Rfam assigns this 103-nucleotide RNA sequence from Metarhizium album to the family "Small nucleolar RNA Z13/snr52". The family's consensus secondary structure was predicted with PFOLD. The organism belongs to Metarhizium album, within Eukaryota. It is annotated as a C/D-box small nucleolar RNA. Rfam links the family to the GO terms nucleolus and RNA processing.
[Rfam]
RNA sequence: UGUCCAUUAUGAUGAAAUAUUUGCGGAUGUAAAAAUUUGUCACGUCGGAAAGCGCAAAUCAAACAAUGUCGAUAUUUCCGUUGCCUUCCUUCUGAUUUUGGAA
Numbered sequence: 001u002g003u004c005c006a007u008u009a010u011g012a013u014g015a016a017a018u019a020u021u022u023g024c025g026g027a028u029g030u031a032a033a034a035a036u037u038u039g040u041c042a043c044g045u046c047g048g049a050a051a052g053c054g055c056a057a058a059u060c061a062a063a064c065a066a067u068g069u070c071g072a073u074a075u076u077u078c079c080g081u082u083g084c085c086u087u088c089c090u091u092c093u094g095a096u097u098u099u100g101g102a103a
Stems, first nucleotide, its partner, number of pairs: 003102003024080004